This 83-nucleotide RNA from Polypterus senegalus belongs to the Rfam family "mir-363 microRNA precursor family". The family has 22 seed sequences and 620 matches in Rfam 15.1.
RNA sequence: GCUGUUUUCGGGUGGGUGACGUUGCAAUUUUAUUAAUUUUUUUGUUUAAAAAGAAAUUGCACGGUAUCCAUCUGUAAUCCGCU
Numbered sequence: 001g002c003u004g005u006u007u008u009c010g011g012g013u014g015g016g017u018g019a020c021g022u023u024g025c026a027a028u029u030u031u032a033u034u035a036a037u038u039u040u041u042u043u044g045u046u047u048a049a050a051a052a053g054a055a056a057u058u059g060c061a062c063g064g065u066a067u068c069c070a071u072c073u074g075u076a077a078u079c080c081g082c083u
Stems, first nucleotide, its partner, number of pairs: 009074009019065002023061009
Gene Ontology terms of the family: miRNA-mediated post-transcriptional gene silencing and RISC complex. NCBI's taxonomy places the organism under Eukaryota, Opisthokonta, Chordata, Vertebrata, Polypterus. For this family Rfam cites "Genome-wide comparative analysis of microRNAs in three non-human primates" (Brameier, BMC Res Notes, 2010).